[Rfam]
A member of the RNA family "Potassium channel RNA editing signal" from Rhynochetos jubatus, 114 nucleotides long. This family represents a group of sequences related to the human potassium channel Kv1.1 hairpin element which directs the efficient modification of an adenosine to inosine by an adenosine deaminase acting on RNA (ADAR). Lineage of the source: Eukaryota > Metazoa > Coelurosauria > Neoaves > Rhynochetos.
RNA sequence: UUAGGUUACGGCGAUAUGUAUCCCAUGACUUGGUCCGGGAUGUUGGUGGGGGCUCUCUGCGCUUUGGCGGGGGUCCUCACCAUCGCCAUGCCCGUCCCCGUCAUCGUCAAUAAU
Numbered sequence: 001u002u003a004g005g006u007u008a009c010g011g012c013g014a015u016a017u018g019u020a021u022c023c024c025a026u027g028a029c030u031u032g033g034u035c036c037g038g039g040a041u042g043u044u045g046g047u048g049g050g051g052g053c054u055c056u057c058u059g060c061g062c063u064u065u066g067g068c069g070g071g072g073g074u075c076c077u078c079a080c081c082a083u084c085g086c087c088a089u090g091c092c093c094g095u096c097c098c099c100g101u102c103a104u105c106g107u108c109a110a111u112a113a114u
Base pairs, nucleotide, nucleotide: 002113004111008107009106010105011104013102014101015100018097020095021094037077038076039075040074049063050062